Shown here is a 173-nucleotide RNA from Paraburkholderia sp. BL23I1N1, a member of the family "Burkholderia RNA 14". The family's RNA type in Rfam is small RNA.
RNA sequence: GUUGCCAUCGUCACGGUGCAGCCGACGACCGUGCCGGUCGUCACCGAAUUGCCGGGCCGUACCAAUGCAUUCCUCGUGGCGCAAGUGCGUGCGCGGGUUGACGGCAUCGUGCUGCGCCGCGAAUUCACCGAGGGCAGCCAGGUCAAGGCUGGCCAGCGUCUGUACAAGAUCGA
Number, nucleotide and partner (000 for none) at each position: 001g000002u000003u054004g053005c000006c051007a050008u047009c046010g045011u043012c000013a041014c040015g039016g038017u000018g000019c036020a000021g034022c033023c031024g030025a000026c000027g000028a000029c000030c024031g023032u000033g022034c021035c000036g019037g000038u016039c015040g014041u013042c000043a011044c000045c010046g009047a008048a000049u000050u007051g006052c000053c004054g003055g150056g149057c148058c147059g143060u142061a000062c000063c000064a000065a000066u136067g135068c134069a000070u000071u000072c133073c000074u131075c130076g000077u000078g000079g092080c091081g090082c089083a000084a000085g000086u000087g000088c000089g082090u081091g080092c079093g000094c121095g120096g000097g118098u000099u116100g115101a000102c114103g113104g112105c111106a110107u000108c000109g000110u106111g105112c104113u103114g102115c100116g099117c000118c097119g000120c095121g094122a000123a000124u000125u000126c000127a000128c000129c000130g075131a074132g000133g072134g068135c067136a066137g000138c000139c000140a000141g000142g060143u059144c000145a000146a000147g058148g057149c056150u055151g000152g000153c000154c000155a000156g000157c172158g171159u169160c168161u167162g000163u000164a000165c000166a000167a161168g160169a159170u000171c158172g157173a000
A reference for the family is Ramos et al. (2013), "Experimental identification of small non-coding regulatory RNAs in the opportunistic human pathogen Burkholderia cenocepacia J2315", Genomics.
Taxonomically the source falls in Paraburkholderia (Bacteria, Pseudomonadota, Burkholderiales, Burkholderiaceae).
About the family: Co-purified with Hfq, expression confirmed by Northern blot.